[Rfam]
RNA sequence: AAAAAACUUACUAACUAUAUUGGAUUUAACAUUUGUACUAUAGAUAAAAUCUAAGUACAGUCGCUCUGCUCGAAGCGAUACAGCGGUUAAACAACUGGUGUUACGAAUUGUAGCGGGUGUGUGGCAACCCCAAAUAGUCACGGUGGUACUCUGUGCGGGUACUUUACUUAGUGUAUAAUUUAGAAAGUAAGCUAAACACUAUUACUGCUGGGCGGAGUAGGCAGGAACAAGCAUAAAGCUUGUGGUAAAGUAAGU
Numbered sequence: 001a002a003a004a005a006a007c008u009u010a011c012u013a014a015c016u017a018u019a020u021u022g023g024a025u026u027u028a029a030c031a032u033u034u035g036u037a038c039u040a041u042a043g044a045u046a047a048a049a050u051c052u053a054a055g056u057a058c059a060g061u062c063g064c065u066c067u068g069c070u071c072g073a074a075g076c077g078a079u080a081c082a083g084c085g086g087u088u089a090a091a092c093a094a095c096u097g098g099u100g101u102u103a104c105g106a107a108u109u110g111u112a113g114c115g116g117g118u119g120u121g122u123g124g125c126a127a128c129c130c131c132a133a134a135u136a137g138u139c140a141c142g143g144u145g146g147u148a149c150u151c152u153g154u155g156c157g158g159g160u161a162c163u164u165u166a167c168u169u170a171g172u173g174u175a176u177a178a179u180u181u182a183g184a185a186a187g188u189a190a191g192c193u194a195a196a197c198a199c200u201a202u203u204a205c206u207g208c209u210g211g212g213c214g215g216a217g218u219a220g221g222c223a224g225g226a227a228c229a230a231g232c233a234u235a236a237a238g239c240u241u242g243u244g245g246u247a248a249a250g251u252a253a254g255u
Stems, first nucleotide, its partner, number of pairs: 007191006034059006041053002061078005080101003084097005115130004121141005148218006160252009169201005179196005205224005227243006
Dot-bracket structure: ......[[[[[[.....................((((((.((.........)))))))).(((((........))))).(((.(((((....))))).))).............[[[[..(((((.]]]]......)))))......{{{{{{......((((((((((((((.....(((((..]]]]]]))))))))))...(((((...}}}}}}.)))))..((((((.....)))))))))))))))...

A member of the RNA family "ARRPOF RNA", 255 nucleotides long.
The family's consensus secondary structure is taken from published work.